[Rfam]
RNA sequence: GUGAAAUAAAUCACAUACAAACAUACACCCCUUUGUUUAUACGUGAGCAUUUCUCCCAUCCCCUUUGUGAAAAGAAGCGCCUCUCCAUAAUUGGAGAGGCGCUUCU
Numbered sequence: 001g002u003g004a005a006a007u008a009a010a011u012c013a014c015a016u017a018c019a020a021a022c023a024u025a026c027a028c029c030c031c032u033u034u035g036u037u038u039a040u041a042c043g044u045g046a047g048c049a050u051u052u053c054u055c056c057c058a059u060c061c062c063c064u065u066u067g068u069g070a071a072a073a074g075a076a077g078c079g080c081c082u083c084u085c086c087a088u089a090a091u092u093g094g095a096g097a098g099g100c101g102c103u104u105c106u
Base pairs, nucleotide, nucleotide: 003053004052005051006050007049011046012045013044014043019038020037021036022035023034076103077102078101079100080099081098082097083096084095085094086093
RNA Staph. aureus E (RoxS): a 106-nucleotide sequence from Paenisporosarcina antarctica. Pairs were carried over by alignment from the consensus structure, which is taken from published work. Rfam describes the family as follows. It was shown to be regulated by the presence of nitric oxide (NO). In Bacillus subtilis it controls expression of genes with functions related to oxidative stress and oxidation-reduction reactions and it was renamed RoxS (for related to oxidative stress). Taxonomically the source falls in Paenisporosarcina (Bacteria, Bacillota, Bacilli, Caryophanales).